[Rfam]
RNA sequence: GUGGUGUCUGGUAUUUCGUGUUGAAAGAUACGAAGUCAGUGAGGCCAGCACGUCAUGGUAGGUUACUAGCGGACUCAUACUCCGUUGGGUUGUAGCUCAUUUGGGUAGAGCACUCGUUUUUGGAACGAAUGGUAGCCGGUUCAAAUCCGGUCAACUCAUCCUUGAAAGAUGAAAAAACGCAAAGACUGGCCUCACAGGUAGUACGAAAAUGGCUUAAUGCUUCAGUCCUUCGGGCAAUGAAGCCCUUCGAAGCUCGCAAGGCGGACAAGGUUAGUAGCGAAGCGCACUAUAGCGACGGCCAUCGUUGUAGGUAGCAGAACUACUGAGUACGCUACUUGAUACGUGAAUCGCCACACGUUAAAAAAGGCAGUCAUGCUGGCAGACUCAGGAGCAUCCUUGAUGGAUGGCUUGGGUGGAUAAGCUGGGAACCAAAGGGGUCGCACCCUACGGAUAAUCCAGCAAAGGUGUUAGCGGUGAAGGUGUAAUCUCAGCCU
Numbered sequence: 001g002u003g004g005u006g007u008c009u010g011g012u013a014u015u016u017c018g019u020g021u022u023g024a025a026a027g028a029u030a031c032g033a034a035g036u037c038a039g040u041g042a043g044g045c046c047a048g049c050a051c052g053u054c055a056u057g058g059u060a061g062g063u064u065a066c067u068a069g070c071g072g073a074c075u076c077a078u079a080c081u082c083c084g085u086u087g088g089g090u091u092g093u094a095g096c097u098c099a100u101u102u103g104g105g106u107a108g109a110g111c112a113c114u115c116g117u118u119u120u121u122g123g124a125a126c127g128a129a130u131g132g133u134a135g136c137c138g139g140u141u142c143a144a145a146u147c148c149g150g151u152c153a154a155c156u157c158a159u160c161c162u163u164g165a166a167a168g169a170u171g172a173a174a175a176a177a178c179g180c181a182a183a184g185a186c187u188g189g190c191c192u193c194a195c196a197g198g199u200a201g202u203a204c205g206a207a208a209a210u211g212g213c214u215u216a217a218u219g220c221u222u223c224a225g226u227c228c229u230u231c232g233g234g235c236a237a238u239g240a241a242g243c244c245c246u247u248c249g250a251a252g253c254u255c256g257c258a259a260g261g262c263g264g265a266c267a268a269g270g271u272u273a274g275u276a277g278c279g280a281a282g283c284g285c286a287c288u289a290u291a292g293c294g295a296c297g298g299c300c301a302u303c304g305u306u307g308u309a310g311g312u313a314g315c316a317g318a319a320c321u322a323c324u325g326a327g328u329a330c331g332c333u334a335c336u337u338g339a340u341a342c343g344u345g346a347a348u349c350g351c352c353a354c355a356c357g358u359u360a361a362a363a364a365a366g367g368c369a370g371u372c373a374u375g376c377u378g379g380c381a382g383a384c385u386c387a388g389g390a391g392c393a394u395c396c397u398u399g400a401u402g403g404a405u406g407g408c409u410u411g412g413g414u415g416g417a418u419a420a421g422c423u424g425g426g427a428a429c430c431a432a433a434g435g436g437g438u439c440g441c442a443c444c445c446u447a448c449g450g451a452u453a454a455u456c457c458a459g460c461a462a463a464g465g466u467g468u469u470a471g472c473g474g475u476g477a478a479g480g481u482g483u484a485a486u487c488u489c490a491g492c493c494u
Stems, first nucleotide, its partner, number of pairs: 001056007008039005015034008042192007195338008210373005219243006225235003244270004252262003273324005287310009350368003375472003379468003383414007416487003421460006479493003
RNA: Giant, ornate, lake- and Lactobacillales-derived (GOLLD) RNA